[Rfam]
RNA: Eukaryotic large subunit ribosomal RNA, nucleotides 1995 to 2483
RNA sequence: UAGAAGAAAGUAGAUAAGGGAAGUCGGCAAAAUGGAUCCGUAACUUCGGGAAAAGGAUUGGCUCUGAGGGCUGGGUGCAUAGCGCCAGUGCGUCCUCUGUGUGUCGGAGCUGCGCGGGCCCUUUCGUGCCUCGCGGCGCGUCUGCGGACUGCCGGCACUGACCGCGGAGCGACCGCUGGUCUUGCGUGCACAGUGAACAGCCAACUCAGAACUGGAGCGGACAAGGGGAAUCCGACUGUUUAAUUAAAACAAAGCAUUGCGAUGGCCGCAAACGGUGUUGACGCAAUGUGAUUUCUGCCCAGUGCUCUGAAUGUCAAUGUGAUGAAAUUCAAUCAAGCGCGGGUUAACGGCGGACGUAACUAUGACGUUCUUAAGGUAGCCAAAUGCCUCGUCAUCUAAUUAGUGACGUGCAUGAAUGGAUUAACGAGAUUCCCACUGUCCCUAUCUACUAUCUAGCGAAACCACAGCCAAGGGAACGGGCUUGGCGGA
Numbered sequence: 001u002a003g004a005a006g007a008a009a010g011u012a013g014a015u016a017a018g019g020g021a022a023g024u025c026g027g028c029a030a031a032a033u034g035g036a037u038c039c040g041u042a043a044c045u046u047c048g049g050g051a052a053a054a055g056g057a058u059u060g061g062c063u064c065u066g067a068g069g070g071c072u073g074g075g076u077g078c079a080u081a082g083c084g085c086c087a088g089u090g091c092g093u094c095c096u097c098u099g100u101g102u103g104u105c106g107g108a109g110c111u112g113c114g115c116g117g118g119c120c121c122u123u124u125c126g127u128g129c130c131u132c133g134c135g136g137c138g139c140g141u142c143u144g145c146g147g148a149c150u151g152c153c154g155g156c157a158c159u160g161a162c163c164g165c166g167g168a169g170c171g172a173c174c175g176c177u178g179g180u181c182u183u184g185c186g187u188g189c190a191c192a193g194u195g196a197a198c199a200g201c202c203a204a205c206u207c208a209g210a211a212c213u214g215g216a217g218c219g220g221a222c223a224a225g226g227g228g229a230a231u232c233c234g235a236c237u238g239u240u241u242a243a244u245u246a247a248a249a250c251a252a253a254g255c256a257u258u259g260c261g262a263u264g265g266c267c268g269c270a271a272a273c274g275g276u277g278u279u280g281a282c283g284c285a286a287u288g289u290g291a292u293u294u295c296u297g298c299c300c301a302g303u304g305c306u307c308u309g310a311a312u313g314u315c316a317a318u319g320u321g322a323u324g325a326a327a328u329u330c331a332a333u334c335a336a337g338c339g340c341g342g343g344u345u346a347a348c349g350g351c352g353g354a355c356g357u358a359a360c361u362a363u364g365a366c367g368u369u370c371u372u373a374a375g376g377u378a379g380c381c382a383a384a385u386g387c388c389u390c391g392u393c394a395u396c397u398a399a400u401u402a403g404u405g406a407c408g409u410g411c412a413u414g415a416a417u418g419g420a421u422u423a424a425c426g427a428g429a430u431u432c433c434c435a436c437u438g439u440c441c442c443u444a445u446c447u448a449c450u451a452u453c454u455a456g457c458g459a460a461a462c463c464a465c466a467g468c469c470a471a472g473g474g475a476a477c478g479g480g481c482u483u484g485g486c487g488g489a
Stems, first nucleotide, its partner, number of pairs: 001455004009450008018441003035059005044049001060213002063210006069202005075191006082185002084180003088176003097167004103162005109156004116149001119146001121144001125140006214218001226434007233426002237251003254289008265276004293420003297351003302348002304344004309340001312339003320331003352370006371375001391407005468485005